[Rfam]
Shown here is a 173-nucleotide RNA sequence from Mycobacterium bohemicum, a member of the family "Actinobacteria sRNA Ms_IGR-5".
It is annotated as a small RNA.
The pairing is the family consensus, mapped onto this sequence.
RNA sequence: ACACAAGAAGGGAGGUGGUCCGCGAAAUUGAUAGCUUCAUGGACAUGUGAGGUGGCUGCGCGCUAGCGCAUCCGCUCGGAAGAGCCGGCCUGCCGCUGGCGAAUUCCCCGCAGUCACCCGGCCCCCGAGCGUCCGGUCCGUCCAACCGGAAUGUCGCUCGGGGGCCGCACCAU
Numbered sequence: 001a002c003a004c005a006a007g008a009a010g011g012g013a014g015g016u017g018g019u020c021c022g023c024g025a026a027a028u029u030g031a032u033a034g035c036u037u038c039a040u041g042g043a044c045a046u047g048u049g050a051g052g053u054g055g056c057u058g059c060g061c062g063c064u065a066g067c068g069c070a071u072c073c074g075c076u077c078g079g080a081a082g083a084g085c086c087g088g089c090c091u092g093c094c095g096c097u098g099g100c101g102a103a104u105u106c107c108c109c110g111c112a113g114u115c116a117c118c119c120g121g122c123c124c125c126c127g128a129g130c131g132u133c134c135g136g137u138c139c140g141u142c143c144a145a146c147c148g149g150a151a152u153g154u155c156g157c158u159c160g161g162g163g164g165c166c167g168c169a170c171c172a173u
Base pairs, nucleotide, nucleotide: 015059016058017057018056019055061101062100063099064098065097066096067095068093069092070091072088073087074086119167120166121165122164123163124162125161126160127159128158129157130156131155132150133149134148135147136146137145